Source information:
FMN riboswitch aptamer (RFN element): a 178-nucleotide RNA from Photorhabdus laumondii. It scores 99 bits against the family's covariance model. Pairs were carried over by alignment from the consensus structure, which is taken from published work.
[Rfam]
Nucleotides: 178
Stems, first nucleotide, its partner, number of pairs: 003176003006172004016028003030158002032147002034078004073145002081123002127143005149161003
Number, partner (000 for none) and nucleotide at each position: 001000g002000c003176u004175u005174a006172u007171c008170u009169c010000a011000g012000g013000g014000c015000g016028g017027g018026g019000u020000g021000a022000a023000a024000g025000u026018c027017c028016c029000c030158a031157c032147c033146g034078g035077c036076g037075g038000u039000a040000a041000a042000c043000a044000u045000c046000a047000g048000u049000c050000c051000a052000u053000u054000u055000u056000u057000u058000g059000a060000g061000u062000g063000g064000c065000a066000u067000g068000g069000u070000g071000a072000a073145g074144c075037c076036c077035g078034c079000g080000a081123g082122c083000g084000c085000u086000c087000c088000g089000u090000u091000u092000g093000u094000g095000g096000u097000u098000a099000u100000c101000u102000u103000a104000a105000u106000g107000a108000u109000a110000a111000a112000g113000c114000g115000g116000a117000g118000g119000u120000c121000a122082g123081c124000a125000g126000a127143u128142c129141c130140a131139g132000u133000g134000u135000a136000a137000u138000u139131c140130u141129g142128g143127a144074g145073c146033c147032g148000a149161c150160g151159g152000u153000g154000a155000u156000a157031g158030u159151c160150c161149g162000g163000a164000u165000g166000g167000g168000a169009g170008a171007g172006a173000a174005u175004a176003a177000c178000g